Background
This 109-nucleotide RNA sequence from Criibacterium bergeronii belongs to the Rfam family "SAM riboswitch aptamer (S box leader)". The SAM riboswitch is found upstream of a number of genes which code for proteins involved in methionine or cysteine biosynthesis in Gram-positive bacteria. A search with the family's covariance model found it, with a score of 81 bits.
RNA sequence: ACCUUAUCAGGAGAGGUGGAGGGAAAGGCCCUACGAAACCCGGCAACCGACUUUGUAAAAAGCAAAGCACGGUGCUAAUUCCUACAAGUAACUGCUUGAGAGAUGAGGA
Numbered sequence: 001a002c003c004u005u006a007u008c009a010g011g012a013g014a015g016g017u018g019g020a021g022g023g024a025a026a027g028g029c030c031c032u033a034c035g036a037a038a039c040c041c042g043g044c045a046a047c048c049g050a051c052u053u054u055g056u057a058a059a060a061a062g063c064a065a066a067g068c069a070c071g072g073u074g075c076u077a078a079u080u081c082c083u084a085c086a087a088g089u090a091a092c093u094g095c096u097u098g099a100g101a102g103a104u105g106a107g108g109a
Stems, first nucleotide, its partner, number of pairs: 002108007013041001015040003021031003026083003042076004047072002051067005080101001085098005